This 87-nucleotide sequence from Neptunomonas concharum belongs to the Rfam family "t44 RNA". A search with the family's covariance model found it, with a score of 62 bits. The base pairs follow the family's consensus structure, which was predicted with LocARNA. The organism belongs to Neptunomonas, within Bacteria.

[Rfam]
RNA sequence: AGUGCGACGGAGAUAUUCUACACACAUAUCGACACAGUGUCCGGGUGCCGCUUAGCGGUUGGAUGUUGGGAUAUGUGGAGGUAAAAC
Numbered sequence: 001a002g003u004g005c006g007a008c009g010g011a012g013a014u015a016u017u018c019u020a021c022a023c024a025c026a027u028a029u030c031g032a033c034a035c036a037g038u039g040u041c042c043g044g045g046u047g048c049c050g051c052u053u054a055g056c057g058g059u060u061g062g063a064u065g066u067u068g069g070g071a072u073a074u075g076u077g078g079a080g081g082u083a084a085a086a087c
Base pairs, nucleotide, nucleotide: 023077024076025075026074027073028072029071030070035068036067037066038065039064040063041062042061043060047059048058049057050056051055